[Rfam]
RNA sequence: UGCCGGAAGAUAAGGCGUAAAACAGUCAAAACAAGGGAAGCAACCCCGUACAAAAGCGUA
Numbered sequence: 001u002g003c004c005g006g007a008a009g010a011u012a013a014g015g016c017g018u019a020a021a022a023c024a025g026u027c028a029a030a031a032c033a034a035g036g037g038a039a040g041c042a043a044c045c046c047c048g049u050a051c052a053a054a055a056g057c058g059u060a
Base pairs, nucleotide, nucleotide: 001017002016003015004014009027010026011025035047036046037045
Dot-bracket structure: ((((....[[[..)))).......]]].......(((.......))).............